The family of this 64-nucleotide RNA sequence from Anser cygnoides is "Small nucleolar RNA Z39".
RNA sequence: GUACAGAUGAUGAGCUUUUGCAGUAUGAGGAGAAACAGUGAUACUGUAAACGCUUUCUGAUGUA
Numbered sequence: 001g002u003a004c005a006g007a008u009g010a011u012g013a014g015c016u017u018u019u020g021c022a023g024u025a026u027g028a029g030g031a032g033a034a035a036c037a038g039u040g041a042u043a044c045u046g047u048a049a050a051c052g053c054u055u056u057c058u059g060a061u062g063u064a
Stems, first nucleotide, its partner, number of pairs: 002064004012056003016052001021046006
The organism belongs to Anser, within Eukaryota. Its family is annotated with nucleolus and RNA processing in the Gene Ontology. The match comes from Rfam's covariance-model search (50 bits).